[Rfam]
This 146-nucleotide RNA from Eubacterium coprostanoligenes belongs to the Rfam family "glmS glucosamine-6-phosphate activated ribozyme aptamer". This entry contains a glucosamine-6-phosphate activated ribozyme that is found in the mRNA for GlmS. GlmS is an enzyme that uses fructose-6-phosphate and glutamine to generate glucosamine-6-phosphate. The ribozyme catalyses self cleavage of the glmS mRNA that is thought to regulate GlmS activity. The organism belongs to Eubacterium, within Bacteria. Rfam classes the family as a riboswitch.
RNA sequence: CGGCCACAGUUAGCGCCUGAACCCUAUGGGUUGACGAGGAAAAGAGUUAUCGAAAUAUUCGGCGGAUGCUCUUUCGUACGCUUUGGUGCGUAGAAAAAGGCAAAAACUUCGGCAACGAAGCAACAAAUCCUUUUUCACAAAGCAAU
Numbered sequence: 001c002g003g004c005c006a007c008a009g010u011u012a013g014c015g016c017c018u019g020a021a022c023c024c025u026a027u028g029g030g031u032u033g034a035c036g037a038g039g040a041a042a043a044g045a046g047u048u049a050u051c052g053a054a055a056u057a058u059u060c061g062g063c064g065g066a067u068g069c070u071c072u073u074u075c076g077u078a079c080g081c082u083u084u085g086g087u088g089c090g091u092a093g094a095a096a097a098a099g100g101c102a103a104a105a106a107c108u109u110c111g112g113c114a115a116c117g118a119a120g121c122a123a124c125a126a127a128u129c130c131u132u133u134u135u136c137a138c139a140a141a142g143c144a145a146u
Stems, first nucleotide, its partner, number of pairs: 020032005041074005050062004075090005093136007107120005